[Rfam]
RNA sequence: ACGACUUACUGUACGUAUGCGCGGUAAGUGGUUUUUAAACAAGCAUAUUGAGGAAAAUAUCAUGGCAUUAAGCGCAGCAGAAAAAGCAGCAAUUCUUAAAGACUACCAACAAUCUGAA
Numbered sequence: 001a002c003g004a005c006u007u008a009c010u011g012u013a014c015g016u017a018u019g020c021g022c023g024g025u026a027a028g029u030g031g032u033u034u035u036u037a038a039a040c041a042a043g044c045a046u047a048u049u050g051a052g053g054a055a056a057a058u059a060u061c062a063u064g065g066c067a068u069u070a071a072g073c074g075c076a077g078c079a080g081a082a083a084a085a086g087c088a089g090c091a092a093u094u095c096u097u098a099a100a101g102a103c104u105a106c107c108a109a110c111a112a113u114c115u116g117a118a
Stems, first nucleotide, its partner, number of pairs: 007026006048071004053066001